[Rfam]
RNA sequence: CGGGGACAACGCGGUCUCCCCGCAUCUUAGAUACUCCGGUAUCCAAGCGCCGC
Numbered sequence: 001c002g003g004g005g006a007c008a009a010c011g012c013g014g015u016c017u018c019c020c021c022g023c024a025u026c027u028u029a030g031a032u033a034c035u036c037c038g039g040u041a042u043c044c045a046a047g048c049g050c051c052g053c
Stems, first nucleotide, its partner, number of pairs: 001022006011053005030043005

Notes: Rfam assigns this 53-nucleotide RNA from Ferrovibrio terrae to the family "chrB-b RNA". A search with the family's covariance model found it, with a score of 47 bits. The family's RNA type in Rfam is cis-regulatory element. The base pairs follow the family's consensus structure, which is taken from published work. NCBI's taxonomy places the organism under Bacteria, Pseudomonadati, Pseudomonadota, Alphaproteobacteria, Ferrovibrio.